[Rfam]
RNA: Enterobacteria greA leader
RNA sequence: GUCAUACUACGGUGCAAAGCAGGAAAAAGUAAACGAUGACCCAUAAUGAACUCUACGUUAAAAUGCGUAUCAAAAUGCAAAACCAAUCCUGACCCGGCUAUCACUGCCGGUCAGGAUUCUUU
Dot-bracket structure: (((((....((..((.............))...)))))))(......)........(.((.......)).)................(((((((.(((.......)))))))))).......